[Rfam]
RNA sequence: AGCUAUUCGAAUCCGUGCUGAGAUUUCCUCAGACACUAAACCACAAAGGCUGAUGAAAUUCCCAAGGUGAGUGGAAUA
Numbered sequence: 001a002g003c004u005a006u007u008c009g010a011a012u013c014c015g016u017g018c019u020g021a022g023a024u025u026u027c028c029u030c031a032g033a034c035a036c037u038a039a040a041c042c043a044c045a046a047a048g049g050c051u052g053a054u055g056a057a058a059u060u061c062c063c064a065a066g067g068u069g070a071g072u073g074g075a076a077u078a
Stems, first nucleotide, its partner, number of pairs: 002077001004075001006073001008071001011068003016064002020061003024058004029053002
Dot-bracket structure: .(.(.(.(..(((..((..(((.((((.((.....................)).))))))).)).)))..).).).).
The family of this 78-nucleotide sequence from Schistosoma haematobium is "mir-3492 microRNA precursor family".
Pairs were carried over by alignment from the consensus structure, which was predicted with RNAalifold.
Taxonomically the source falls in Schistosoma (Eukaryota, Metazoa, Eumetazoa, Spiralia).